This 76-nucleotide RNA sequence belongs to the Rfam family "Fluoride riboswitch aptamer (crcB RNA motif)".
Its family is annotated with positive regulation of gene expression and response to fluoride in the Gene Ontology.
The family's consensus secondary structure is taken from published work.
[Rfam]
RNA sequence: UUGCCGUUGGGCGAUGGCGUCCGCCCGGGGCUUCGGGCCCGAACCGCCCACAAGGGCUGAUGACGCCUGUUCUCCG
Number, nucleotide and partner (000 for none) at each position: 001u000002u000003g000004c000005c000006g000007u000008u000009g000010g025011g024012c023013g022014a000015u000016g067017g066018c065019g064020u063021c062022c013023g012024c011025c010026c000027g000028g000029g000030g000031c000032u000033u000034c000035g000036g000037g000038c000039c000040c000041g000042a000043a000044c000045c000046g057047c056048c055049c054050a000051c000052a000053a000054g049055g048056g047057c046058u000059g000060a000061u000062g021063a020064c019065g018066c017067c016068u000069g000070u000071u000072c000073u000074c000075c000076g000